The record is a 95-nucleotide sequence from Aedes aegypti, which matches "mir-283 microRNA precursor family" in Rfam. Its family is annotated with miRNA-mediated post-transcriptional gene silencing and RISC complex in the Gene Ontology. Pairs were carried over by alignment from the consensus structure, which was predicted with WAR. Clan: mir-216 clan. The sequence is in the family's curated seed alignment.
RNA sequence: UUCGACUGAAAGGUCAAUAUCAGCUGGUAAUUCUGGGCUUACCCCACCGUUAUACGCUUCCCGGAAUUCCAACUGAUAUCCACUUUUUAGUCGAG
Numbered sequence: 001u002u003c004g005a006c007u008g009a010a011a012g013g014u015c016a017a018u019a020u021c022a023g024c025u026g027g028u029a030a031u032u033c034u035g036g037g038c039u040u041a042c043c044c045c046a047c048c049g050u051u052a053u054a055c056g057c058u059u060c061c062c063g064g065a066a067u068u069c070c071a072a073c074u075g076a077u078a079u080c081c082a083c084u085u086u087u088u089a090g091u092c093g094a095g
Stems, first nucleotide, its partner, number of pairs: 009087006017079007025071003030067008